[Rfam]
RNA sequence: GGCGGCGUUAACCAUUCAUUAGGGCUUCCAGAUUACAAACGACCUCGUCCAGUCUUCUGGAUGUCGAGUGGCUCCUGUCACUCUGUUUGACGCCUCCCUGUUUAAUCACUUCGCGGCCGCCUUCGGGCGGCUUUUUUUUG
Numbered sequence: 001g002g003c004g005g006c007g008u009u010a011a012c013c014a015u016u017c018a019u020u021a022g023g024g025c026u027u028c029c030a031g032a033u034u035a036c037a038a039a040c041g042a043c044c045u046c047g048u049c050c051a052g053u054c055u056u057c058u059g060g061a062u063g064u065c066g067a068g069u070g071g072c073u074c075c076u077g078u079c080a081c082u083c084u085g086u087u088u089g090a091c092g093c094c095u096c097c098c099u100g101u102u103u104a105a106u107c108a109c110u111u112c113g114c115g116g117c118c119g120c121c122u123u124c125g126g127g128c129g130g131c132u133u134u135u136u137u138u139u140g
Stems, first nucleotide, its partner, number of pairs: 001043001003041002015037001020035003047062004066083005089102004113134001115132007

The record is a 140-nucleotide RNA from Salinarimonas soli, which matches "Alphaproteobacterial sRNA BjrC1505" in Rfam. It is annotated as a small RNA.